This 66-nucleotide RNA sequence from Polypterus senegalus belongs to the Rfam family "Small nucleolar RNA SNORD98". A reference for the family is Galardi et al. (2002), "Purified box C/D snoRNPs are able to reproduce site-specific 2'-O-methylation of target RNA in vitro", Mol Cell Biol. Its family is annotated with nucleolus and RNA processing in the Gene Ontology. NCBI's taxonomy places the organism under Eukaryota, Eumetazoa, Craniata, Polypteridae, Polypterus. Rfam 15.1 lists 571 matches to the family in 543 species. It scores 50 bits against the family's covariance model.
RNA sequence: GGGAAGUGAUGUUUAAAGACUUAUUCCAUUUCCGAAGCAAGUUGUGGAGUAAAACAUAGUGAUCCC
Numbered sequence: 001g002g003g004a005a006g007u008g009a010u011g012u013u014u015a016a017a018g019a020c021u022u023a024u025u026c027c028a029u030u031u032c033c034g035a036a037g038c039a040a041g042u043u044g045u046g047g048a049g050u051a052a053a054a055c056a057u058a059g060u061g062a063u064c065c066c
Stems, first nucleotide, its partner, number of pairs: 001066004